[Rfam]
RNA sequence: AACCUUACUCUAAUAGUAAUACUACUUAGUAUUAAAGAAAGUAUAGUUUUAAAUAAUUAAUAUUUAUAUCUAUCUAACUAAGUAUUACUAUAAAGCUACUUUUAACUAGAUUAUUACUAAAUACCUUUAAGGUAGAAUUUAUACUAGAAUAGAGUAAUAUAUACUUAUUUUAAUUUAAUAUAAAUAAGCCUUUAGUCUUAAACCUUACUAGACUAGUAUUAGUAGUUUAUUAAAGUUAAAGUUACUAGCUAAUAUAUUAUAAGUAUAUAGUAUAUUAGGUUAAAUCCUUUAUAAAUAACUUAGUUAUCUAGCUAAGUUAUAUAAGUAGUUAAUUAGUCUUAUUAUUAUAAGCUACUAAGUAUAAGCUUAUUACUAGCUUGAAUAAA
Numbered sequence: 001a002a003c004c005u006u007a008c009u010c011u012a013a014u015a016g017u018a019a020u021a022c023u024a025c026u027u028a029g030u031a032u033u034a035a036a037g038a039a040a041g042u043a044u045a046g047u048u049u050u051a052a053a054u055a056a057u058u059a060a061u062a063u064u065u066a067u068a069u070c071u072a073u074c075u076a077a078c079u080a081a082g083u084a085u086u087a088c089u090a091u092a093a094a095g096c097u098a099c100u101u102u103u104a105a106c107u108a109g110a111u112u113a114u115u116a117c118u119a120a121a122u123a124c125c126u127u128u129a130a131g132g133u134a135g136a137a138u139u140u141a142u143a144c145u146a147g148a149a150u151a152g153a154g155u156a157a158u159a160u161a162u163a164c165u166u167a168u169u170u171u172a173a174u175u176u177a178a179u180a181u182a183a184a185u186a187a188g189c190c191u192u193u194a195g196u197c198u199u200a201a202a203c204c205u206u207a208c209u210a211g212a213c214u215a216g217u218a219u220u221a222g223u224a225g226u227u228u229a230u231u232a233a234a235g236u237u238a239a240a241g242u243u244a245c246u247a248g249c250u251a252a253u254a255u256a257u258u259a260u261a262a263g264u265a266u267a268u269a270g271u272a273u274a275u276u277a278g279g280u281u282a283a284a285u286c287c288u289u290u291a292u293a294a295a296u297a298a299c300u301u302a303g304u305u306a307u308c309u310a311g312c313u314a315a316g317u318u319a320u321a322u323a324a325g326u327a328g329u330u331a332a333u334u335a336g337u338c339u340u341a342u343u344a345u346u347a348u349a350a351g352c353u354a355c356u357a358a359g360u361a362u363a364a365g366c367u368u369a370u371u372a373c374u375a376g377c378u379u380g381a382a383u384a385a386a
Stems, first nucleotide, its partner, number of pairs: 005157007014146004019049001021047004050105001052103002058098002065092004071084003075080001107141003114134001117131002164278002167275002170272001283383001285381002287303002308376004314368003318361002325355004330351001334347004
RNA: Eukaryotic large subunit ribosomal RNA, nucleotides 3442 to 3827
Organism: Plenodomus tracheiphilus